[Rfam]
RNA sequence: CAGGCCGAGAGGCGCUGCAACGGACACCGGCGUGUCCGCCACGCUCGGCCUGAACCACGACUGCAAGGGCGCCUCCUAUGA
Numbered sequence: 001c002a003g004g005c006c007g008a009g010a011g012g013c014g015c016u017g018c019a020a021c022g023g024a025c026a027c028c029g030g031c032g033u034g035u036c037c038g039c040c041a042c043g044c045u046c047g048g049c050c051u052g053a054a055c056c057a058c059g060a061c062u063g064c065a066a067g068g069g070c071g072c073c074u075c076c077u078a079u080g081a
Stems, first nucleotide, its partner, number of pairs: 002051007021038006